[Rfam]
RNA: Nitrogen stress-induced RNA 1
RNA sequence: UGGUAGAUGCACCCUGAUUAUGAAACCCUCGAUCACAGGAUCGAGGGUUUUUCUUG
Numbered sequence: 001u002g003g004u005a006g007a008u009g010c011a012c013c014c015u016g017a018u019u020a021u022g023a024a025a026c027c028c029u030c031g032a033u034c035a036c037a038g039g040a041u042c043g044a045g046g047g048u049u050u051u052u053c054u055u056g
Base pairs, nucleotide, nucleotide: 002013003012004011025048026047027046028045029044030043031042032041033040034039